Shown here is an 85-nucleotide RNA from Virgibacillus salexigens, a member of the family "c-di-GMP-I riboswitch aptamer".
[Rfam]
RNA sequence: GACAGAAAAAGGCAAACGUGCUGAAAGGUACGGGCGCAAAGUCACAGAUCUAAAACAUACAUGUUAUGAUGGCUGGACUUCCUGG
Numbered sequence: 001g002a003c004a005g006a007a008a009a010a011g012g013c014a015a016a017c018g019u020g021c022u023g024a025a026a027g028g029u030a031c032g033g034g035c036g037c038a039a040a041g042u043c044a045c046a047g048a049u050c051u052a053a054a055a056c057a058u059a060c061a062u063g064u065u066a067u068g069a070u071g072g073c074u075g076g077a078c079u080u081c082c083u084g085g
Base pairs, nucleotide, nucleotide: 012037013036017032018031019030020029021028022027040079041078042077043076045075046074047073048070049069050068055064056063057062
It scores 71 bits against the family's covariance model.